[Rfam]
RNA sequence: ACAACUCAGGUCUGUGGUUGAAAGUCGAUGCCAGUUGCAGGCAAAACGAUCCACGUAAGCAGUAAAAAUUACUGUGAGCACGGUGCAGCUUAGAAGUAAGUCCUGCCGCAUAAAAAUUGAGGCGAGAGAGUUAGUAGUGGGGAGCAGAGUCUUAGGAGCGAACCCUCCAGCAGGCGAGUGUGGGGGCGAAAACCAGGUCAGCUGAGUUGU
Dot-bracket structure: (((((((((..((((((((........((([.(((((((.]........((......(................).....[)))))))))...........((((((((............)))...(((......((....((......)).....)).....)))..)))))....)))......]..)))))...))))))))))))
Numbered sequence: 001a002c003a004a005c006u007c008a009g010g011u012c013u014g015u016g017g018u019u020g021a022a023a024g025u026c027g028a029u030g031c032c033a034g035u036u037g038c039a040g041g042c043a044a045a046a047c048g049a050u051c052c053a054c055g056u057a058a059g060c061a062g063u064a065a066a067a068a069u070u071a072c073u074g075u076g077a078g079c080a081c082g083g084u085g086c087a088g089c090u091u092a093g094a095a096g097u098a099a100g101u102c103c104u105g106c107c108g109c110a111u112a113a114a115a116a117u118u119g120a121g122g123c124g125a126g127a128g129a130g131u132u133a134g135u136a137g138u139g140g141g142g143a144g145c146a147g148a149g150u151c152u153u154a155g156g157a158g159c160g161a162a163c164c165c166u167c168c169a170g171c172a173g174g175c176g177a178g179u180g181u182g183g184g185g186g187c188g189a190a191a192a193c194c195a196g197g198u199c200a201g202c203u204g205a206g207u208u209g210u
Stems, first nucleotide, its partner, number of pairs: 001210009012201003015195005028181003031041001033090007050083002058075001081188001102174005107124003128167003137159002143152002
A member of the RNA family "raiA RNA", 210 nucleotides long. It is annotated as a riboswitch. The family's consensus secondary structure is taken from published work.